[Rfam]
RNA sequence: AGUAUCAGGUGAUGAGACCUUGAAACAAUCUUAGGACACCUUCUGACACAGUGCUUUUAUCCUGUGAAUGAGAAGUAAUUUAUUUUCUGAUGAUACA
Number, nucleotide and partner (000 for none) at each position: 001a000002g096003u095004a094005u093006c092007a091008g000009g000010u000011g000012a000013u000014g000015a000016g000017a000018c000019c000020u000021u000022g000023a000024a000025a000026c000027a000028a000029u000030c000031u000032u000033a000034g000035g000036a000037c000038a000039c000040c000041u000042u000043c000044u050045g049046a000047c000048a000049c045050a044051g000052u000053g000054c000055u000056u000057u000058u000059a000060u000061c000062c000063u000064g000065u000066g000067a000068a000069u000070g000071a000072g000073a000074a000075g000076u000077a000078a000079u000080u000081u000082a000083u000084u000085u000086u000087c000088u000089g000090a000091u007092g006093a005094u004095a003096c002097a000

Rfam assigns this 97-nucleotide RNA from Hordeum vulgare to the family "Small nucleolar RNA snoR31/Z110/Z27". Lineage of the source: Eukaryota > Streptophyta > Streptophytina > Triticeae > Hordeum vulgare. Pairs were carried over by alignment from the consensus structure, which was predicted with PFOLD. A reference for the family is Barneche et al. (2001), "Identification of 66 box C/D snoRNAs in Arabidopsis thaliana: extensive gene duplications generated multiple isoforms predicting new ribosomal RNA 2'-O-methylation sites", J Mol Biol.